A member of the RNA family "mir-210 microRNA precursor family" from Sitophilus oryzae, 96 nucleotides long. The literature on the family includes a 2005 paper in Proc Natl Acad Sci U S A by Cai et al., "Kaposi's sarcoma-associated herpesvirus expresses an array of viral microRNAs in latently infected cells". Gene Ontology terms of the family: miRNA-mediated post-transcriptional gene silencing and RISC complex.

[Rfam]
RNA sequence: UUGAAACCCAUUACAGCUGCUGGACGCUGCACAAGAGAGAUAUCAAAAACUCUUGUGCGUGUGACAGCGGCUAUUGUGGGAUUUCCUGUCUUCAAC
Numbered sequence: 001u002u003g004a005a006a007c008c009c010a011u012u013a014c015a016g017c018u019g020c021u022g023g024a025c026g027c028u029g030c031a032c033a034a035g036a037g038a039g040a041u042a043u044c045a046a047a048a049a050c051u052c053u054u055g056u057g058c059g060u061g062u063g064a065c066a067g068c069g070g071c072u073a074u075u076g077u078g079g080g081a082u083u084u085c086c087u088g089u090c091u092u093c094a095a096c
Base pairs, nucleotide, nucleotide: 005082007080008079009078010077011076015072016071017070018069019068020067021066022065025061026060028059029058030057031056032055033054035052036051